This 62-nucleotide RNA sequence belongs to the Rfam family "Bacilli-1 RNA". Rfam classes the family as a small RNA. It is one of the family's seed sequences. The base pairs follow the family's consensus structure, which is taken from published work.

[Rfam]
RNA sequence: AUUUAUGGUGACAUGGACACAUAGUAGUCACACUAUGUGGCUUGGCAGGGCUAAAAACUUCU
Numbered sequence: 001a002u003u004u005a006u007g008g009u010g011a012c013a014u015g016g017a018c019a020c021a022u023a024g025u026a027g028u029c030a031c032a033c034u035a036u037g038u039g040g041c042u043u044g045g046c047a048g049g050g051c052u053a054a055a056a057a058c059u060u061c062u
Stems, first nucleotide, its partner, number of pairs: 002017006018039007